[Rfam]
RNA sequence: GGAAUCCACACCAAAUAAGCUGCUAACCACAGCAUUUGAAGCGAGUCUUGAGUCUGUUGCGGUAACGUUGCAGGCUAAGCGUAGACAGCAAGAUAACAGGGAUAGCUAUUGAGCACCGAAAUCCCAAAGUCACCAGAGGGUCGACAUCGUGGUUUGGAUGGAAGACAACAUAUGUAUUUAUCGUUAUGGUGAGAUUUUACACACAUCUGCGGCGUUGGUUAAAA
Numbered sequence: 001g002g003a004a005u006c007c008a009c010a011c012c013a014a015a016u017a018a019g020c021u022g023c024u025a026a027c028c029a030c031a032g033c034a035u036u037u038g039a040a041g042c043g044a045g046u047c048u049u050g051a052g053u054c055u056g057u058u059g060c061g062g063u064a065a066c067g068u069u070g071c072a073g074g075c076u077a078a079g080c081g082u083a084g085a086c087a088g089c090a091a092g093a094u095a096a097c098a099g100g101g102a103u104a105g106c107u108a109u110u111g112a113g114c115a116c117c118g119a120a121a122u123c124c125c126a127a128a129g130u131c132a133c134c135a136g137a138g139g140g141u142c143g144a145c146a147u148c149g150u151g152g153u154u155u156g157g158a159u160g161g162a163a164g165a166c167a168a169c170a171u172a173u174g175u176a177u178u179u180a181u182c183g184u185u186a187u188g189g190u191g192a193g194a195u196u197u198u199a200c201a202c203a204c205a206u207c208u209g210c211g212g213c214g215u216u217g218g219u220u221a222a223a224a
Stems, first nucleotide, its partner, number of pairs: 012038005020032003024192001026190002041089002045086004049081002051076007059068003110218001111216001113215002116212003134209004139204001140166003145160004171203001173201004180195003
Rfam assigns this 224-nucleotide RNA from Blautia luti to the family "Group II catalytic intron D1-D4-6". NCBI's taxonomy places the organism under Bacteria, Bacillati, Lachnospirales, Lachnospiraceae, Blautia. The match comes from Rfam's covariance-model search (132 bits). About the family: Group II introns are found in rRNA, tRNA and mRNA of organelles in fungi, plants and protists, and also in mRNA in bacteria.